Shown here is a 78-nucleotide RNA from Chloropsis hardwickii, a member of the family "mir-458 microRNA precursor family".
Gene Ontology terms of the family: RISC complex and miRNA-mediated post-transcriptional gene silencing.
Taxonomically the source falls in Chloropsis (Eukaryota, Theropoda, Aves, Irenidae).
Rfam 15.1 lists 1,011 matches to the family in 491 species.
RNA sequence: GUGCUUGUGGCAGUACCAUUCCAAGAGCUAUGACAGUGACAGCGUUGAUAGCUCUGGAAAUGGCGCUGCCACCGGCAC
Numbered sequence: 001g002u003g004c005u006u007g008u009g010g011c012a013g014u015a016c017c018a019u020u021c022c023a024a025g026a027g028c029u030a031u032g033a034c035a036g037u038g039a040c041a042g043c044g045u046u047g048a049u050a051g052c053u054c055u056g057g058a059a060a061u062g063g064c065g066c067u068g069c070c071a072c073c074g075g076c077a078c
Stems, first nucleotide, its partner, number of pairs: 002077003007072003011068003016063005024055008